Description
Rfam assigns this 312-nucleotide sequence from Juglans regia to the family "Plant signal recognition particle RNA". The family's consensus secondary structure is taken from published work. By type it is a non-coding RNA gene. The organism belongs to Juglans, within Eukaryota.

[Rfam]
Nucleotides: 312
Stems, first nucleotide, its partner, number of pairs: 001040003004023007028037003044311010056299002058296003062290002065287002068285005075279004079267003083263004088259001090256003098252003104246002107240002110238005116231004121226003126167003130163010141150003168173001177220004187212003194205003
Number, partner (000 for none) and nucleotide at each position: 001040g002039c003038c004023g005022g006021g007020c008019u009018u010017g011000g012000c013000a014000a015000c016000g017010c018009g019008a020007g021006c022005c023004u024000a025000u026000u027000a028037c029036c030035c031000a032000u033000g034000u035030g036029g037028g038003g039002g040001c041000u042000u043000c044311a045310a046309a047308g048307u049306g050305a051304u052303g053302g054000a055000a056299c057298g058296c059295u060294g061000g062290c063289a064000u065287a066286u067000u068285c069284c070283a071282u072281c073000c074000u075279g076278g077277u078276c079267g080266g081265g082000c083263u084262c085261c086260c087000g088259a089000u090256g091255g092254c093000u094000u095000a096000u097000a098252c099251u100250g101000u102000c103000c104246c105245g106000c107240c108239c109000g110238c111237u112236c113235c114234a115000a116231g117230u118229c119228a120000a121226g122225a123224g124000a125000u126167g127166a128165g129000g130163c131162a132161u133160g134159u135158g136157a137156u138155c139154u140000a141150g142149g143148c144000g145000a146000a147000g148143g149142c150141c151000c152000u153000c154139g155138g156137g157136u158135c159134a160133c161132g162131u163130g164000a165128u166127u167126c168173c169000u170000a171000g172000a173168g174000g175000u176000u177220g178219g179218g180217g181000g182000c183000a184000a185000a186000g187212c188211g189210u190000g191000a192000g193000g194205c195204u196203g197000g198000u199000u200000u201000c202000a203196c204195a205194g206000a207000g208000c209000a210189g211188c212187g213000a214000c215000a216000a217180c218179c219178c220177c221000c222000c223000g224123c225122u226121c227000c228119u229118g230117a231116c232000a233000g234114u235113g236112g237111a238110g239108g240107g241000a242000u243000a244000a245105c246104g247000u248000a249000u250100c251099a252098g253000u254092g255091c256090c257000u258000c259088u260086g261085g262084g263083a264000u265081c266080c267079c268000c269000c270000a271000g272000u273000a274000a275000a276078g277077a278076c279075c280000c281072g282071g283070u284069g285068g286066a287065u288000u289063u290062g291000a292000c293000c294060u295059g296058g297000u298057u299056g300000g301000a302053c303052c304051a305050u306049c307048a308047c309046u310045u311044u312000u